[Rfam]
RNA sequence: UUGCAUCUUGGGAACUCUUAUUCUUCUCCUCCUCCUUUUGGGAAUAAAACUACCUGUGGCAUGCUAUAGAAAAUCAAGGAGUUUUCAGGGCUAUUAACCAUGUAGUGAAGAUUAAGUGGUAGUCUUUUGCUCUUACAGAA
Dot-bracket structure: ..((((.(.............(.(((((...........))))).)............).)))).............((((........((..((((.(.(......).).))).)..)).........)))).......
RNA: Small nucleolar RNA U109
Organism: Equus caballus